[Rfam]
RNA: SAM/SAH riboswitch aptamer
Organism: Sulfitobacter sp. HI0023
RNA sequence: CGCUUGCCACAACGGCUUCCUGACGUGGCAAUUAACGCAUUUCAAUCGGAGCA
Numbered sequence: 001c002g003c004u005u006g007c008c009a010c011a012a013c014g015g016c017u018u019c020c021u022g023a024c025g026u027g028g029c030a031a032u033u034a035a036c037g038c039a040u041u042u043c044a045a046u047c048g049g050a051g052c053a
Stems, first nucleotide, its partner, number of pairs: 004031007013022002015052003019049002